[Rfam]
RNA sequence: CCGCGGCGCUCUAGGAUCAUUCCUGGUGUGUUGCGGUCGAAAGGAACCGCUGCCGUAAAACGCGGCGGUUCAUGUAAAAGAACAUGACGACCAGCAGGGGUAUCCGGGACGGCGCCGGACAUCGUUGGGAAUCGUGGUAGCUUUUCGAGUCAAUGCUCUAGGACUCGGCAACGGCUGGCUGCGCUUCACGCCGGUGAGUAUCCCCUAAUCGAGGGUGAUGA
Numbered sequence: 001c002c003g004c005g006g007c008g009c010u011c012u013a014g015g016a017u018c019a020u021u022c023c024u025g026g027u028g029u030g031u032u033g034c035g036g037u038c039g040a041a042a043g044g045a046a047c048c049g050c051u052g053c054c055g056u057a058a059a060a061c062g063c064g065g066c067g068g069u070u071c072a073u074g075u076a077a078a079a080g081a082a083c084a085u086g087a088c089g090a091c092c093a094g095c096a097g098g099g100g101u102a103u104c105c106g107g108g109a110c111g112g113c114g115c116c117g118g119a120c121a122u123c124g125u126u127g128g129g130a131a132u133c134g135u136g137g138u139a140g141c142u143u144u145u146c147g148a149g150u151c152a153a154u155g156c157u158c159u160a161g162g163a164c165u166c167g168g169c170a171a172c173g174g175c176u177g178g179c180u181g182c183g184c185u186u187c188a189c190g191c192c193g194g195u196g197a198g199u200a201u202c203c204c205c206u207a208a209u210c211g212a213g214g215g216u217g218a219u220g221a
Stems, first nucleotide, its partner, number of pairs: 001036009011026006045070006052063002055061001096206005101200002103119005120196004126190002129187003133183001136180003139176002141173001143171002148165004

Record summary: This 221-nucleotide sequence from Pseudomonas matsuisoli belongs to the Rfam family "sucA-II RNA". A search with the family's covariance model found it, with a score of 74 bits. It is annotated as a cis-regulatory element.